[Rfam]
RNA sequence: UGCAAGUAUUUUAUUAUUAAGAAGCAAUUGCCCCUUGUAUAGAUUAUGUAUUAGUCU
Numbered sequence: 001u002g003c004a005a006g007u008a009u010u011u012u013a014u015u016a017u018u019a020a021g022a023a024g025c026a027a028u029u030g031c032c033c034c035u036u037g038u039a040u041a042g043a044u045u046a047u048g049u050a051u052u053a054g055u056c057u
Stems, first nucleotide, its partner, number of pairs: 018037004024031002

Annotation: Rfam assigns this 57-nucleotide RNA from Ziziphus jujuba to the family "Plastid-rps18 3UTR RNA". The match comes from Rfam's covariance-model search (66 bits). By type it is a cis-regulatory element. About the family: Plastid rps18 is a non-coding RNA (ncRNA) present in plastids. It was identified as a short stem-loop motif in the 3 prime untranslate region (3UTR) of rps18 gene.